uup RNA: a 51-nucleotide sequence from Blautia producta. The organism belongs to Blautia producta, within Bacteria. The family's consensus secondary structure is taken from published work.
[Rfam]
RNA sequence: GACGAAUCAUCUCCGUGCAAAUAAAGUUUCCGGUGAGACAUUGUGCGGAGU
Number, nucleotide and partner (000 for none) at each position: 001g000002a000003c000004g000005a000006a000007u000008c000009a000010u000011c050012u049013c048014c047015g046016u000017g044018c043019a042020a000021a000022u000023a000024a000025a000026g000027u000028u000029u000030c000031c000032g000033g000034u000035g000036a000037g000038a000039c000040a000041u000042u019043g018044u017045g000046c015047g014048g013049a012050g011051u000